[Rfam]
RNA sequence: CCGCUAUCCGCUAAACGGUCUGGCCGUGUCGCGGAAGGUUGUUCCCUGCAUCAAUAACGAGUGAAGCACUCGAAUUAGGUGAAGCG
Numbered sequence: 001c002c003g004c005u006a007u008c009c010g011c012u013a014a015a016c017g018g019u020c021u022g023g024c025c026g027u028g029u030c031g032c033g034g035a036a037g038g039u040u041g042u043u044c045c046c047u048g049c050a051u052c053a054a055u056a057a058c059g060a061g062u063g064a065a066g067c068a069c070u071c072g073a074a075u076u077a078g079g080u081g082a083a084g085c086g
Stems, first nucleotide, its partner, number of pairs: 002086003007035005016026004037046002049081004058072006
Shown here is an 86-nucleotide RNA sequence from Pollutimonas harenae, a member of the family "SucA RNA motif". It is annotated as a cis-regulatory element. A search with the family's covariance model found it, with a score of 53 bits. On this family, see Weinberg et al., Nucleic Acids Res 2007: "Identification of 22 candidate structured RNAs in bacteria using the CMfinder comparative genomics pipeline". NCBI's taxonomy places the organism under Bacteria, Pseudomonadota, Burkholderiales, Alcaligenaceae, Pollutimonas.